Nucleotides: 044
Stems, first nucleotide, its partner, number of pairs: 006043006
Number, partner (000 for none) and nucleotide at each position: 001000c002000u003000a004000u005000a006043u007042u008041g009040u010039u011038u012000u013000c014000u015000u016000c017000u018000a019000u020000u021000u022000u023000u024000a025000u026000c027000u028000u029000a030000u031000u032000c033000a034000u035000a036000g037000a038011g039010a040009g041008c042007a043006a044000a
A member of the RNA family "Plastid-rpoB 5UTR RNA" from Dendrobium nobile, 44 nucleotides long.
For this family Rfam cites "Retrograde signaling in plants: A critical review focusing on the GUN pathway and beyond" (Richter et al., Plant Commun, 2023).
Pairs were carried over by alignment from the consensus structure, which was predicted with LocARNA.
The organism belongs to Dendrobium, within Eukaryota.
From the family's description: Plastid rpoB is a non-coding RNA (ncRNA) recognised in plastids.
By type it is a cis-regulatory element.
A search with the family's covariance model found it, with a score of 52 bits.
The family has 49 seed sequences and 102 matches in Rfam 15.1.